A member of the RNA family "Ribosomal protein L20 leader" from Monoglobus pectinilyticus, 120 nucleotides long.
A search with the family's covariance model found it, with a score of 59 bits.
The family's RNA type in Rfam is cis-regulatory leader.
This family is a putative r-protein leader autoregulatory structure found in B. subtilis and other low-GC Gram-positive bacteria. It is located in the 5' untranslated regions of mRNAs encoding initiation factor 3 followed by ribosomal proteins L35 and L20 (infC-rpmI-rplT). A Rho-independent transcription terminator structure that is probably involved in regulation is included at the 3' end.
Pairs were carried over by alignment from the consensus structure, which was predicted with CMfinder.
RNA sequence: UUAGUAAAGCAGAAGUGCCGCUUCUCCCCUUAGCGAAAAGCAAAAGGGUAUCCGAUUAUUACAGAUAAAUAUUUUAUGGAUAUUGCGGUGUACUUUUGUACUUCGCAUUUUUUAUGCAAA
Numbered sequence: 001u002u003a004g005u006a007a008a009g010c011a012g013a014a015g016u017g018c019c020g021c022u023u024c025u026c027c028c029c030u031u032a033g034c035g036a037a038a039a040g041c042a043a044a045a046g047g048g049u050a051u052c053c054g055a056u057u058a059u060u061a062c063a064g065a066u067a068a069a070u071a072u073u074u075u076a077u078g079g080a081u082a083u084u085g086c087g088g089u090g091u092a093c094u095u096u097u098g099u100a101c102u103u104c105g106c107a108u109u110u111u112u113u114a115u116g117c118a119a120a
Stems, first nucleotide, its partner, number of pairs: 011025006027048003033041002084107005090101004